[Rfam]
Nucleotides: 108
Base pairs, nucleotide, nucleotide: 024087025086026085027084028083035078036077037076038075039074044069045068046067051063052062053061054060
Number, partner (000 for none) and nucleotide at each position: 001000a002000c003000u004000c005000a006000a007000c008000g009000a010000a011000g012000a013000u014000u015000a016000a017000a018000u019000u020000c021000a022000a023000a024087g025086a026085g027084g028083u029000g030000a031000g032000u033000c034000a035078c036077u037076a038075u039074u040000g041000u042000a043000a044069a045068a046067g047000c048000a049000u050000g051063c052062u053061g054060c055000c056000u057000a058000g059000a060054g061053c062052a063051g064000a065000u066000c067046c068045u069044u070000g071000a072000u073000c074039a075038a076037u077036g078035g079000g080000g081000u082000a083028g084027c085026c086025u087024c088000a089000a090000a091000c092000c093000u094000g095000u096000u097000u098000a099000u100000a101000u102000g103000g104000a105000g106000u107000u108000u

The family of this 108-nucleotide RNA sequence is "6S-Flavo RNA". By type it is a small RNA. It is one of the family's seed sequences.